[Rfam]
RNA: Guanidine-I riboswitch aptamer
Organism: Cylindrospermopsis raciborskii
RNA sequence: ACAAAUAGCCUCUAGGGUUCCGGUUUUUAAUUACCAAACAAAAUGCAGGUCCGAGAGAGGCAAGUUAUUUUCUAGUAUUAGAGAGUAACUACACGGAGGGAAAAAAGCCCGGGAGAA
Numbered sequence: 001a002c003a004a005a006u007a008g009c010c011u012c013u014a015g016g017g018u019u020c021c022g023g024u025u026u027u028u029a030a031u032u033a034c035c036a037a038a039c040a041a042a043a044u045g046c047a048g049g050u051c052c053g054a055g056a057g058a059g060g061c062a063a064g065u066u067a068u069u070u071u072c073u074a075g076u077a078u079u080a081g082a083g084a085g086u087a088a089c090u091a092c093a094c095g096g097a098g099g100g101a102a103a104a105a106a107g108c109c110c111g112g113g114a115g116a117a
Stems, first nucleotide, its partner, number of pairs: 008061005015052002020049002022046001023044005063090011092112001094115001098110003